[Rfam]
Small Cajal body specific RNA 16: a 166-nucleotide RNA from Ceuthmochares aereus. Gene Ontology terms of the family: RNA processing and nucleolus. A search with the family's covariance model found it, with a score of 80 bits. Pairs were carried over by alignment from the consensus structure, which was predicted with RNAfold. By type it is a small Cajal body RNA. About the family: scaRNAs are a specific class of small nuclear RNAs which localise to the Cajal bodies and guide the modification of RNA polymerase II transcribed spliceosomal RNAs U1, U2, U4, U5 and U12. ACA47 belongs to the H/ACA box class of guide RNAs as it has the predicted hairpin-hinge-hairpin-tail structure, the conserved H/ACA-box motifs and is found associated with GAR1. ACA47 is predicted to guide the pseudouridylation of residue U5 of the U1 spliceosomal snRNA.
RNA sequence: GGCUGCUGGGUGGUGGGGCCGCAGGCCCAGACACGUUCCAACCAGCCUCACCCGUGCCCAAGAGCAGAUCCCGGGCAGGCUCCUCCACCGGGGCACGUCCCAUGCAGUAACAGGUGUGAACAUCCAUGCAGCAUUUUGAUGGUCAUGUAUAAUACUGCGUACAACA
Numbered sequence: 001g002g003c004u005g006c007u008g009g010g011u012g013g014u015g016g017g018g019c020c021g022c023a024g025g026c027c028c029a030g031a032c033a034c035g036u037u038c039c040a041a042c043c044a045g046c047c048u049c050a051c052c053c054g055u056g057c058c059c060a061a062g063a064g065c066a067g068a069u070c071c072c073g074g075g076c077a078g079g080c081u082c083c084u085c086c087a088c089c090g091g092g093g094c095a096c097g098u099c100c101c102a103u104g105c106a107g108u109a110a111c112a113g114g115u116g117u118g119a120a121c122a123u124c125c126a127u128g129c130a131g132c133a134u135u136u137u138g139a140u141g142g143u144c145a146u147g148u149a150u151a152a153u154a155c156u157g158c159g160u161a162c163a164a165c166a
Stems, first nucleotide, its partner, number of pairs: 001047004005042001007040002010038001012032001014030001016028001018026003070093003073089002078086002102160008112150001117145003121141004128135001